[Rfam]
RNA: Z6 small nucleolar RNA
RNA sequence: UGCUAGUGAUGAAGCUGCCUCGCUCUGAGCACUGGGCCUUGCCUGGGGUAAGCA
Numbered sequence: 001u002g003c004u005a006g007u008g009a010u011g012a013a014g015c016u017g018c019c020u021c022g023c024u025c026u027g028a029g030c031a032c033u034g035g036g037c038c039u040u041g042c043c044u045g046g047g048g049u050a051a052g053c054a
Stems, first nucleotide, its partner, number of pairs: 001054004